Shown here is a 127-nucleotide RNA sequence from Felis catus, a member of the family "Small nucleolar RNA ACA64". Rfam 15.1 lists 9,537 matches to the family in 620 species. It is one of the family's seed sequences. Rfam links the family to the GO terms RNA processing and nucleolus. Rfam classes the family as an H/ACA-box small nucleolar RNA.

[Rfam]
RNA sequence: GUUGAUUGAAAAUCACCCGCGGCUUUGGUCGUGGCCGCGGGUGAGAUUCGGCGCCCAGAGCCACCGGGGGCCUCAGCUCACCGCCCACUCGUCGGUGUGGGGAGGUGAAACCCAGGCCCCGACAAGC
Numbered sequence: 001g002u003u004g005a006u007u008g009a010a011a012a013u014c015a016c017c018c019g020c021g022g023c024u025u026u027g028g029u030c031g032u033g034g035c036c037g038c039g040g041g042u043g044a045g046a047u048u049c050g051g052c053g054c055c056c057a058g059a060g061c062c063a064c065c066g067g068g069g070g071c072c073u074c075a076g077c078u079c080a081c082c083g084c085c086c087a088c089u090c091g092u093c094g095g096u097g098u099g100g101g102g103a104g105g106u107g108a109a110a111c112c113c114a115g116g117c118c119c120c121g122a123c124a125a126g127c
Stems, first nucleotide, its partner, number of pairs: 006051005013044004021036004067120001069118005078108005086099003